[Rfam]
RNA: mir-184 microRNA precursor family
Organism: Rhodnius prolixus
RNA sequence: UCUGCUACGGACCCUUAUCAUUCUCUUGUCCAGUGUUUUGUUUUUGAGGCCAACUGGACGGAGAACUGAUAAGGGCCUGUGGGUCA
Dot-bracket structure: ...........(((((((((((((((..((.........................))..)))))).)))))))))...........